[Rfam]
RNA sequence: AAGUCCUUUAACUUAAGUCCAGAGAGGCUUGGAAGGUUCAUCAAUUUUUGUGUGUGUUUUUAACGCAACCGAUGUUCACCAUCCUUGGCUCACUGGUCAAGGAUUUUUUAUU
Numbered sequence: 001a002a003g004u005c006c007u008u009u010a011a012c013u014u015a016a017g018u019c020c021a022g023a024g025a026g027g028c029u030u031g032g033a034a035g036g037u038u039c040a041u042c043a044a045u046u047u048u049u050g051u052g053u054g055u056g057u058u059u060u061u062a063a064c065g066c067a068a069c070c071g072a073u074g075u076u077c078a079c080c081a082u083c084c085u086u087g088g089c090u091c092a093c094u095g096g097u098c099a100a101g102g103a104u105u106u107u108u109u110a111u112u
Base pairs, nucleotide, nucleotide: 003038005036006035007034008033009032014031015030016029017028018027019026046074048072049071050070053067054066055065056064057063058062078107081104082103083102084101085100086099087098088097089096090095
Dot-bracket structure: ..(.(((((....((((((......))))))))))).).......(.(((..((((((...))))))..))).)...(..((((((((((....))))))))))..).....